RNA sequence: UCAUGCUGUCCUUCAUUCCACCGGAUUCUGUUUCCCAGCCCGCAGAUUCCCAGUGGGAUGAAGCGCAGUAGGGC
Numbered sequence: 001u002c003a004u005g006c007u008g009u010c011c012u013u014c015a016u017u018c019c020a021c022c023g024g025a026u027u028c029u030g031u032u033u034c035c036c037a038g039c040c041c042g043c044a045g046a047u048u049c050c051c052a053g054u055g056g057g058a059u060g061a062a063g064c065g066c067a068g069u070a071g072g073g074c
Stems, first nucleotide, its partner, number of pairs: 011063006019055003023050003028045003

Source information:
Rfam assigns this 74-nucleotide RNA sequence from Megalops atlanticus to the family "mir-205 microRNA precursor family". The base pairs follow the family's consensus structure, which was predicted with RNAalifold. Rfam 15.1 lists 1,154 matches to the family in 646 species. NCBI's taxonomy places the organism under Eukaryota, Deuterostomia, Vertebrata, Actinopterygii, Megalops. Rfam links the family to the GO terms RISC complex and miRNA-mediated post-transcriptional gene silencing. The match comes from Rfam's covariance-model search (63 bits).